glmS glucosamine-6-phosphate activated ribozyme aptamer: a 160-nucleotide sequence from Clostridium sp. CAG:508.
NCBI's taxonomy places the organism under Bacteria, Bacillota, Clostridia, Clostridiaceae, Clostridium.
[Rfam]
RNA sequence: UGUAUAUAUUUAGCGCCAGGACAGUGUUUAUACACUGUUGACGAGGUUAGAGUUUAUCGAAAGAUUCGGCGGAUGGCUCUAUGGCAUGCGUUACUGCCAUUACAUAUUAACCAAAAAAUUAUAGUGAUAUAAUAUAACAAAUUUAAUAUGAGUACGCUUU
Numbered sequence: 001u002g003u004a005u006a007u008a009u010u011u012a013g014c015g016c017c018a019g020g021a022c023a024g025u026g027u028u029u030a031u032a033c034a035c036u037g038u039u040g041a042c043g044a045g046g047u048u049a050g051a052g053u054u055u056a057u058c059g060a061a062a063g064a065u066u067c068g069g070c071g072g073a074u075g076g077c078u079c080u081a082u083g084g085c086a087u088g089c090g091u092u093a094c095u096g097c098c099a100u101u102a103c104a105u106a107u108u109a110a111c112c113a114a115a116a117a118a119u120u121a122u123a124g125u126g127a128u129a130u131a132a133u134a135u136a137a138c139a140a141a142u143u144u145a146a147u148a149u150g151a152g153u154a155c156g157c158u159u160u
Stems, first nucleotide, its partner, number of pairs: 020039008048081005057069004082099005103150007117135001118133006